[Rfam]
RNA sequence: GCUGCAUCCAGAGGGGUGGAGGGACUGGCCCUACGAAGCCCCGGCAACCACCGAAGGUCGCAAGACCCGAGAUAGGUGCCAAUUCCAGCAGGCGAAGAGCCUGGGAGAUGUGAG
Number, nucleotide and partner (000 for none) at each position: 001g000002c000003u112004g111005c110006a109007u108008c107009c000010a000011g000012a000013g042014g041015g040016g039017u038018g000019g000020a000021g031022g030023g029024a000025c088026u087027g086028g085029c023030c022031c021032u000033a000034c000035g000036a000037a000038g017039c016040c015041c014042c013043g080044g079045c078046a077047a000048c076049c075050a073051c000052c071053g000054a000055a000056g000057g000058u000059c000060g000061c000062a000063a000064g000065a000066c000067c000068c000069g000070a000071g052072a000073u050074a000075g049076g048077u046078g045079c044080c043081a000082a000083u000084u106085c028086c027087a026088g025089c103090a102091g101092g100093c099094g000095a000096a000097g000098a000099g093100c092101c091102u090103g089104g000105g000106a084107g008108a007109u006110g005111u004112g003113a000114g000

The family of this 114-nucleotide RNA from a Solirubrobacterales bacterium is "SAM riboswitch aptamer (S box leader)".
The source organism's lineage runs through Bacteria, Bacillati, Actinomycetota, Thermoleophilia and Solirubrobacterales.
The base pairs follow the family's consensus structure, which is taken from published work.